[Rfam]
RNA sequence: UAAAAGUAUUUUAGGAUUAAGAAACACCGUCUCUUGUACAUAUCGUGUAUUAAUCU
Numbered sequence: 001u002a003a004a005a006g007u008a009u010u011u012u013a014g015g016a017u018u019a020a021g022a023a024a025c026a027c028c029g030u031c032u033c034u035u036g037u038a039c040a041u042a043u044c045g046u047g048u049a050u051u052a053a054u055c056u
Stems, first nucleotide, its partner, number of pairs: 018036005024030002